[Rfam]
RNA sequence: AUUCAGUUGAUGGGCUCCGUUGACUUCCAUAGUAGGAAAAAAAUACUAUGGAAGUCAAUGGAGCCCAUCAACUGUUC
Numbered sequence: 001a002u003u004c005a006g007u008u009g010a011u012g013g014g015c016u017c018c019g020u021u022g023a024c025u026u027c028c029a030u031a032g033u034a035g036g037a038a039a040a041a042a043a044u045a046c047u048a049u050g051g052a053a054g055u056c057a058a059u060g061g062a063g064c065c066c067a068u069c070a071a072c073u074g075u076u077c
Stems, first nucleotide, its partner, number of pairs: 007071019027051005

The family of this 77-nucleotide RNA sequence from Sinocyclocheilus grahami is "mir-1 microRNA precursor family". For this family Rfam cites "An extensive class of small RNAs in Caenorhabditis elegans" (Lee and Ambros, Science, 2001). Rfam describes the family as follows. This family represents the microRNA (miRNA) mir-1 family. miRNAs are transcribed as ~70nt precursors (modelled here) and subsequently processed by the Dicer enzyme to give a ~22nt product. In this case the mature sequence comes from the 3' arm of the precursor. The extents of the hairpin precursors are not generally known and are estimated based on hairpin prediction. Its family is annotated with RISC complex and miRNA-mediated post-transcriptional gene silencing in the Gene Ontology. The match comes from Rfam's covariance-model search (46 bits).